RNA sequence: UGAAACUAAACAACCACCGGCUAAAGCCGGUGGUUGUUUAGUUUGGUCUCAUUAUUGAAAAAUCAAAUUUGCCGUCCCGGCA
Dot-bracket structure: (((((((((((((((((((((....)))))))))))))))))))((..(.(.(..(((....))).).).)...))....))
Rfam assigns this 82-nucleotide RNA sequence from Nitrosomonas europaea to the family "Proteobacteria sRNA psRNA14". The sequence is in the family's curated seed alignment. By type it is a small RNA. Pairs were carried over by alignment from the consensus structure.